[Rfam]
RNA sequence: UUAUGGGGACAUUUUUGGGACAAUUCACCCAGCCUCACUUUCAGGAGUUCUGUGUGGUCUGUGAAUGAUUCCCCAUACCUGUUG
Numbered sequence: 001u002u003a004u005g006g007g008g009a010c011a012u013u014u015u016u017g018g019g020a021c022a023a024u025u026c027a028c029c030c031a032g033c034c035u036c037a038c039u040u041u042c043a044g045g046a047g048u049u050c051u052g053u054g055u056g057g058u059c060u061g062u063g064a065a066u067g068a069u070u071c072c073c074c075a076u077a078c079c080u081g082u083u084g
Stems, first nucleotide, its partner, number of pairs: 004081001006079001008078001011076002017073004028063001029061001032058003036054003
A member of the RNA family "NoRC associated RNA, pRNA" from Microtus ochrogaster, 84 nucleotides long. Pairs were carried over by alignment from the consensus structure, which is taken from published work. Rfam classes the family as a non-coding RNA gene. Taxonomically the source falls in Microtus (Eukaryota, Vertebrata, Euteleostomi, Cricetidae). Gene Ontology term of the family: chromatin remodeling.